[Rfam]
The family of this 93-nucleotide RNA from Parambassis ranga is "mir-217 microRNA precursor family".

RNA sequence: AUACUCCUGGUGUUGAUGAUACUGCAUCAAGAACUGAUUGGAAACUGAUGAGAAGCCAUCAGUUCCUGAUGCACUGCCUUCAGCAUUAAAAGA
Numbered sequence: 001a002u003a004c005u006c007c008u009g010g011u012g013u014u015g016a017u018g019a020u021a022c023u024g025c026a027u028c029a030a031g032a033a034c035u036g037a038u039u040g041g042a043a044a045c046u047g048a049u050g051a052g053a054a055g056c057c058a059u060c061a062g063u064u065c066c067u068g069a070u071g072c073a074c075u076g077c078c079u080u081c082a083g084c085a086u087u088a089a090a091a092g093a
Stems, first nucleotide, its partner, number of pairs: 023073005029067001031065007039058003

Gene Ontology terms of the family: RISC complex and miRNA-mediated post-transcriptional gene silencing.